This 94-nucleotide RNA sequence belongs to the Rfam family "PhotoRC-II RNA".
It is annotated as a cis-regulatory element.
Pairs were carried over by alignment from the consensus structure, which is taken from published work.
RNA sequence: UACCGAAGUUUUUCCCGUUAACCGAGACCUAUGGGAAGUAAAAUUACGUCUCUCAUAUCCACCAGUGAAGGGAUUGGUGGAAAUAUAGUAUCGC
Number, nucleotide and partner (000 for none) at each position: 001u000002a000003c000004c000005g000006a000007a000008g000009u000010u000011u000012u037013u036014c035015c034016c033017g032018u031019u000020a000021a000022c000023c000024g052025a051026g050027a049028c048029c000030u000031a018032u017033g016034g015035g014036a013037a012038g000039u000040a000041a000042a000043a000044u000045u000046a000047c000048g028049u027050c026051u025052c024053u000054c000055a000056u000057a000058u000059c080060c079061a078062c077063c076064a075065g074066u000067g000068a000069a000070g000071g000072g000073a000074u065075u064076g063077g062078u061079g060080g059081a000082a000083a000084u000085a000086u000087a000088g000089u000090a000091u000092c000093g000094c000